[Rfam]
RNA sequence: CGUCAGGGACCGUGGAUAGCGAGCUGGCGAACCCCGCCAGGGCCGGAAGGCAGCAACGGCAGUCAGUCUUUCUUUGCCGCGGCUCCCUGGCAUUU
Numbered sequence: 001c002g003u004c005a006g007g008g009a010c011c012g013u014g015g016a017u018a019g020c021g022a023g024c025u026g027g028c029g030a031a032c033c034c035c036g037c038c039a040g041g042g043c044c045g046g047a048a049g050g051c052a053g054c055a056a057c058g059g060c061a062g063u064c065a066g067u068c069u070u071u072c073u074u075u076g077c078c079g080c081g082g083c084u085c086c087c088u089g090g091c092a093u094u095u
Stems, first nucleotide, its partner, number of pairs: 004089005010082006016074001018073002021069001023067006034059003042051003